[Rfam]
RNA sequence: AAGUGUGUGAGGAGUACGAAUCGAAAAGCCCCUGGAGUCGAAACAAGGACAGACGCCCAGGGGCUUUUUGCU
Number, nucleotide and partner (000 for none) at each position: 001a000002a000003g000004u000005g000006u000007g000008u000009g000010a000011g000012g000013a000014g000015u000016a000017c000018g000019a000020a000021u000022c000023g000024a000025a067026a066027a065028g064029c063030c000031c000032c060033u059034g058035g057036a000037g054038u053039c052040g000041a000042a000043a000044c000045a000046a000047g000048g000049a000050c000051a000052g039053a038054c037055g000056c000057c035058c034059a033060g032061g000062g000063g029064c028065u027066u026067u025068u000069u000070g000071c000072u000
Cyano-1 RNA: a 72-nucleotide RNA from Leptolyngbya sp. ES-bin-22. The family's RNA type in Rfam is small RNA.